[Rfam]
RNA: Bacillaceae-1 RNA
RNA sequence: GGAAGAGGAACUCACGUAAAGAGCGCCGCGUCCUGCGGCAAUACCUGAGUGAACAGGCUCUGCCUGG
Numbered sequence: 001g002g003a004a005g006a007g008g009a010a011c012u013c014a015c016g017u018a019a020a021g022a023g024c025g026c027c028g029c030g031u032c033c034u035g036c037g038g039c040a041a042u043a044c045c046u047g048a049g050u051g052a053a054c055a056g057g058c059u060c061u062g063c064c065u066g067g
Stems, first nucleotide, its partner, number of pairs: 011049004016044002025039005054066004